Rfam assigns this 72-nucleotide RNA from Musa balbisiana to the family "Plastid-ycf2 5UTR RNA". It scores 74 bits against the family's covariance model. Rfam describes the family as follows. Plastid ycf2 is a non-coding RNA (ncRNA) recognised in plastids. It was found in the prime untranslated region (5UTR) of ycf2 genes, it presents a tRNA-like motif which suggests it can be involved in mRNA maturation, particularly involved in defining the precise 5' end of the transcript. By type it is a cis-regulatory element.
RNA sequence: GUGCAUCCAGCAGGAAUUGAACCUACGAAUUUGCAAUGAUGAGUUGGCGCUUUACCAUUCAGCCAUGGAUGC
Numbered sequence: 001g002u003g004c005a006u007c008c009a010g011c012a013g014g015a016a017u018u019g020a021a022c023c024u025a026c027g028a029a030u031u032u033g034c035a036a037u038g039a040u041g042a043g044u045u046g047g048c049g050c051u052u053u054a055c056c057a058u059u060c061a062g063c064c065a066u067g068g069a070u071g072c
Base pairs, nucleotide, nucleotide: 003072004071005070006069007068008067010026012024013023014022039066040065041064043063044062045061046060047058049056